About this RNA:
Archaeal large subunit ribosomal RNA: a 581-nucleotide part of an RNA from Halorhabdus utahensis.
RNA sequence: CCCCCAAGGGGAAGCGAAGACCCUAUGGAGCUUUACUGCAGGCUGUCGCUGGGACAUGGUCGCUAAUGUGCAGAAUAGGUAGGAGACGUUACACAGGUACGUGCGCCAGCACGCCACCGAGUCAUCAUUGAAAUACUACCCGUUAGUGACUGUGACCCUCACUCCGGGAGGAGGACACCGAUAGCCAGGCAGUUUGACUGGGGCGGUACGCGCUCGAAAGAAUAUCGAGCGCGCCCUAAGGCCAUCUCAUCCGGGUCAGAGAUCCGGAGAAGAGCGCAAGAGCAAAAGAUGGCUUGACAGUGUUCUUCCCAACGAGGAACGCUGACGUGAAAGCGUGGUCUAGCGAACUCAUUUGCCCGCUUGAUGCGGGCAAUGAAUGACAGAAAAGCUACCCUAGGGAUAACAGAGUCGUCACUCGCAAGAGCACAUAUCGACCGAGUGGCUUGCUACCUCGAUGUCGGUUCCCUCCAUCCUGCCCGUGCAGAAGCGGGCAAGGGUGAGGUUGUUCGCCUAUUAAAGGAGGUCGUGAGCUGGGUUUAGACCGUCGUGAGACAGGUCGGCUGCUAUCUAUUGGGGGUGUU
Numbered sequence: 001c002c003c004c005c006a007a008g009g010g011g012a013a014g015c016g017a018a019g020a021c022c023c024u025a026u027g028g029a030g031c032u033u034u035a036c037u038g039c040a041g042g043c044u045g046u047c048g049c050u051g052g053g054a055c056a057u058g059g060u061c062g063c064u065a066a067u068g069u070g071c072a073g074a075a076u077a078g079g080u081a082g083g084a085g086a087c088g089u090u091a092c093a094c095a096g097g098u099a100c101g102u103g104c105g106c107c108a109g110c111a112c113g114c115c116a117c118c119g120a121g122u123c124a125u126c127a128u129u130g131a132a133a134u135a136c137u138a139c140c141c142g143u144u145a146g147u148g149a150c151u152g153u154g155a156c157c158c159u160c161a162c163u164c165c166g167g168g169a170g171g172a173g174g175a176c177a178c179c180g181a182u183a184g185c186c187a188g189g190c191a192g193u194u195u196g197a198c199u200g201g202g203g204c205g206g207u208a209c210g211c212g213c214u215c216g217a218a219a220g221a222a223u224a225u226c227g228a229g230c231g232c233g234c235c236c237u238a239a240g241g242c243c244a245u246c247u248c249a250u251c252c253g254g255g256u257c258a259g260a261g262a263u264c265c266g267g268a269g270a271a272g273a274g275c276g277c278a279a280g281a282g283c284a285a286a287a288g289a290u291g292g293c294u295u296g297a298c299a300g301u302g303u304u305c306u307u308c309c310c311a312a313c314g315a316g317g318a319a320c321g322c323u324g325a326c327g328u329g330a331a332a333g334c335g336u337g338g339u340c341u342a343g344c345g346a347a348c349u350c351a352u353u354u355g356c357c358c359g360c361u362u363g364a365u366g367c368g369g370g371c372a373a374u375g376a377a378u379g380a381c382a383g384a385a386a387a388g389c390u391a392c393c394c395u396a397g398g399g400a401u402a403a404c405a406g407a408g409u410c411g412u413c414a415c416u417c418g419c420a421a422g423a424g425c426a427c428a429u430a431u432c433g434a435c436c437g438a439g440u441g442g443c444u445u446g447c448u449a450c451c452u453c454g455a456u457g458u459c460g461g462u463u464c465c466c467u468c469c470a471u472c473c474u475g476c477c478c479g480u481g482c483a484g485a486a487g488c489g490g491g492c493a494a495g496g497g498u499g500a501g502g503u504u505g506u507u508c509g510c511c512u513a514u515u516a517a518a519g520g521a522g523g524u525c526g527u528g529a530g531c532u533g534g535g536u537u538u539a540g541a542c543c544g545u546c547g548u549g550a551g552a553c554a555g556g557u558c559g560g561c562u563g564c565u566a567u568c569u570a571u572u573g574g575g576g577g578u579g580u581u
Base pairs, nucleotide, nucleotide: 001577002576003575004574005573006572007571010569011568012567014564015563022398023397024396025395027394028393029390030389031388032387033386035193036192037191038190042185043184044183045182046181047180048179051158052157053156055154056153057152058151059150060149061148062147063146064145065144066143067142068141078140079139080138081137082136085123086122087121100113101112102111103110104109162173163172164171165170196209197207198206199205210232211231212230213229214228215227235338236337241293242292243291244290245289246288247273248272250268251267252266253265254264255263274283275282298324299323300322301321302320303319304318305317306316326335328333349376350375351374352373353372355371356370357369358368359367407448408447409446411445412442413441414440415439416438417437418436422432423431459534460532461531462530463529464526465523466522467521468520469519472497473496476491477490478489479488480487500512501511502510503509540558541557542556543555544553545552546551
Lineage of the source: Archaea > Methanobacteriota > Halobacteria > Halorhabdus > Halorhabdus utahensis.